Nucleotides: 087
Stems, first nucleotide, its partner, number of pairs: 001079006007072003010044004025034003046063005
Number, partner (000 for none) and nucleotide at each position: 001079g002078g003077c004076g005075g006074g007072g008071c009070g010044c011043c012042c013041c014000c015000g016000g017000a018000u019000a020000c021000a022000a023000a024000a025034c026033c027032c028000g029000c030000a031000a032027g033026g034025g035000g036000a037000a038000g039000a040000a041013g042012g043011g044010g045000g046063g047062u048061c049060c050059g051000u052000c053000u054000c055000u056000u057000u058000c059050c060049g061048g062047a063046u064000u065000u066000c067000c068000a069000a070009c071008g072007c073000u074006c075005c076004c077003g078002c079001c080000a081000c082000c083000a084000g085000g086000g087000c